[Rfam]
The record is a 434-nucleotide part of an RNA from Thyridium curvatum, which matches "Eukaryotic large subunit ribosomal RNA" in Rfam. Lineage of the source: Eukaryota > Opisthokonta > Ascomycota > Sordariomycetidae > Thyridium. It scores 2803 bits against the family's covariance model. Its family is annotated with ribosome and structural constituent of ribosome in the Gene Ontology.
RNA sequence: GGUAGUAGCAAAUACUUCAAUGAGAACUUGAAGGACCGAAGUGGGGAAAGGUUCCAUGUGAACAGCGGUUGGACAUGGGUUAGUCGAUCCUAAGCUAUAGGGAAGUUCCGUUUCAAAGGGGCACUUGUGCCCCGUAUAGCGAAAGGGAAGCAGGUUAAUAUUCCUGCACCUGGAUGUGGGUUUUACGCGGUAACGCAACUGAACGCGGAGACGACGGCGGGGGCCCCGGGCAGAGUUCUCUUUUCUUCUUAACGGUCUAUCACCCUGAAAACAGUUUGUCUGGAGAUAGGGUUUAAUGGCCGGAAGAGCCCAGCACUUCUGUUGGGUCCGGUGCGCUCUCGACGUCCCUUGAAAAUCCGCGGGAGGGAAUAAUUCUCGCGCCAGGUCGUACUCAUAACCGCAGCAGGUCUCCAAGGUGAACAGCCUCUGGUUGA
Numbered sequence: 001g002g003u004a005g006u007a008g009c010a011a012a013u014a015c016u017u018c019a020a021u022g023a024g025a026a027c028u029u030g031a032a033g034g035a036c037c038g039a040a041g042u043g044g045g046g047a048a049a050g051g052u053u054c055c056a057u058g059u060g061a062a063c064a065g066c067g068g069u070u071g072g073a074c075a076u077g078g079g080u081u082a083g084u085c086g087a088u089c090c091u092a093a094g095c096u097a098u099a100g101g102g103a104a105g106u107u108c109c110g111u112u113u114c115a116a117a118g119g120g121g122c123a124c125u126u127g128u129g130c131c132c133c134g135u136a137u138a139g140c141g142a143a144a145g146g147g148a149a150g151c152a153g154g155u156u157a158a159u160a161u162u163c164c165u166g167c168a169c170c171u172g173g174a175u176g177u178g179g180g181u182u183u184u185a186c187g188c189g190g191u192a193a194c195g196c197a198a199c200u201g202a203a204c205g206c207g208g209a210g211a212c213g214a215c216g217g218c219g220g221g222g223g224c225c226c227c228g229g230g231c232a233g234a235g236u237u238c239u240c241u242u243u244u245c246u247u248c249u250u251a252a253c254g255g256u257c258u259a260u261c262a263c264c265c266u267g268a269a270a271a272c273a274g275u276u277u278g279u280c281u282g283g284a285g286a287u288a289g290g291g292u293u294u295a296a297u298g299g300c301c302g303g304a305a306g307a308g309c310c311c312a313g314c315a316c317u318u319c320u321g322u323u324g325g326g327u328c329c330g331g332u333g334c335g336c337u338c339u340c341g342a343c344g345u346c347c348c349u350u351g352a353a354a355a356u357c358c359g360c361g362g363g364a365g366g367g368a369a370u371a372a373u374u375c376u377c378g379c380g381c382c383a384g385g386u387c388g389u390a391c392u393c394a395u396a397a398c399c400g401c402a403g404c405a406g407g408u409c410u411c412c413a414a415g416g417u418g419a420a421c422a423g424c425c426u427c428u429g430g431u432u433g434a
Stems, first nucleotide, its partner, number of pairs: 015033006034432004043412004049392002054078006063071002085388003089146002094140002097111002100109003119133003150167005170384004175380005180374001187196003204361006213346004218341007226331003229249002232246003253302005262292006272282003309326007398407002414426004